[Rfam]
RNA sequence: AAGGGUAGCCAGUGCUACCGCGAUUUAUAAACAAUCGUUCGAGAGGGUGCAACUCCCCCCCCCUUGGAGGGUAUCCAAGCCC
Numbered sequence: 001a002a003g004g005g006u007a008g009c010c011a012g013u014g015c016u017a018c019c020g021c022g023a024u025u026u027a028u029a030a031a032c033a034a035u036c037g038u039u040c041g042a043g044a045g046g047g048u049g050c051a052a053c054u055c056c057c058c059c060c061c062c063c064u065u066g067g068a069g070g071g072u073a074u075c076c077a078a079g080c081c082c
Stems, first nucleotide, its partner, number of pairs: 005018005012050001020038006045057003059071003064078005
A member of the RNA family "Tymovirus/Pomovirus/Furovirus tRNA-like 3' UTR element" from Pomovirus colombiense, 82 nucleotides long. Rfam classes the family as a cis-regulatory element. From the family's description: This family represents a tRNA-like structure found in the 3' UTR of Tymoviruses, Pomoviruses and Furovirus. Gene Ontology term of the family: regulation of translation. The base pairs follow the family's consensus structure, which is taken from published work. The match comes from Rfam's covariance-model search (57 bits). A reference for the family is Matsuda and Dreher (2004), "The tRNA-like structure of Turnip yellow mosaic virus RNA is a 3'-translational enhancer", Virology.